[Rfam]
RNA sequence: ACCUUAUAUAGAUGUAUCAACGCAAGACAGUUGAGCAUUUCCCUAUAAGGUGAUGUUUCAAUAGAAGUAUAAACAACAAGUCUUAUUGUGUAGUUAUGAGUUGAAAUAAGAUGAGUUUAUAUGGAAUAGGUUAACCGUAAGACCUUGAGUUGAAAAACUCUAAAAUUAACCUAGAAAUCAAAUUUUUAAAAUUUCGUAUUUUCUAGUUACGGUUGG
Number, nucleotide and partner (000 for none) at each position: 001a051002c050003c049004u048005u047006a046007u045008a044009u000010a040011g039012a038013u037014g036015u035016a000017u034018c033019a032020a031021c030022g028023c000024a000025a000026g000027a000028c022029a000030g021031u020032u019033g018034a017035g015036c014037a013038u012039u011040u010041c000042c000043c000044u008045a007046u006047a005048a004049g003050g002051u001052g000053a000054u000055g000056u000057u000058u000059c000060a000061a000062u000063a000064g000065a000066a000067g122068u121069a120070u119071a118072a117073a116074c115075a000076a000077c000078a000079a000080g000081u111082c110083u109084u108085a107086u106087u105088g000089u000090g000091u000092a102093g101094u000095u099096a000097u000098g000099a095100g000101u093102u092103g000104a000105a087106a086107u085108a084109a083110g082111a081112u000113g000114a000115g074116u073117u072118u071119a070120u069121a068122u067123g000124g000125a000126a000127u000128a145129g144130g143131u142132u141133a000134a213135c212136c211137g210138u209139a208140a166141g132142a131143c130144c129145u128146u000147g160148a159149g158150u157151u156152g000153a000154a000155a000156a151157a150158c149159u148160c147161u000162a000163a000164a000165a000166u140167u000168a000169a000170c000171c206172u205173a204174g203175a202176a201177a200178u000179c196180a000181a000182a000183u000184u000185u000186u000187u000188a000189a000190a000191a000192u000193u000194u000195c000196g179197u000198a000199u000200u177201u176202u175203c174204u173205a172206g171207u000208u139209a138210c137211g136212g135213u134214u000215g000216g000
RNA: IS605-orfB-I RNA